Shown here is a 247-nucleotide RNA sequence from Halopseudomonas phragmitis, a member of the family "PhrS". The literature on the family includes a 2006 paper in Nucleic Acids Res by Livny et al., "Identification of 17 Pseudomonas aeruginosa sRNAs and prediction of sRNA-encoding genes in 10 diverse pathogens using the bioinformatic tool sRNAPredict2". It scores 81 bits against the family's covariance model.
[Rfam]
RNA sequence: GUGGAUAUUCUGCAAUCGUUGAUGGACGCAAGGUGGGGAGAAGCCCAUGUAUAUCGAUGAUGCAGUGAUUGCCGGUGUGUUGACGGUUGGUUUGAUGAUCGCGUUCUUGGGAGGGGUCGGUUAUUUCAUCUGGUCCGAUAGUCGCAAGGCCAAGAACAAGCGUUCCUGAGUAGGCCUCAAUGGUUUUCAAGUGCAUGGCUCGCAAGGCCUUUGGCGGUCACCUUCUGGGUUGACCGCCUUUUUUUUG
Numbered sequence: 001g002u003g004g005a006u007a008u009u010c011u012g013c014a015a016u017c018g019u020u021g022a023u024g025g026a027c028g029c030a031a032g033g034u035g036g037g038g039a040g041a042a043g044c045c046c047a048u049g050u051a052u053a054u055c056g057a058u059g060a061u062g063c064a065g066u067g068a069u070u071g072c073c074g075g076u077g078u079g080u081u082g083a084c085g086g087u088u089g090g091u092u093u094g095a096u097g098a099u100c101g102c103g104u105u106c107u108u109g110g111g112a113g114g115g116g117u118c119g120g121u122u123a124u125u126u127c128a129u130c131u132g133g134u135c136c137g138a139u140a141g142u143c144g145c146a147a148g149g150c151c152a153a154g155a156a157c158a159a160g161c162g163u164u165c166c167u168g169a170g171u172a173g174g175c176c177u178c179a180a181u182g183g184u185u186u187u188c189a190a191g192u193g194c195a196u197g198g199c200u201c202g203c204a205a206g207g208c209c210u211u212u213g214g215c216g217g218u219c220a221c222c223u224u225c226u227g228g229g230u231u232g233a234c235c236g237c238c239u240u241u242u243u244u245u246u247g
Stems, first nucleotide, its partner, number of pairs: 010113002013110001062072003089100004198208002201206001213238007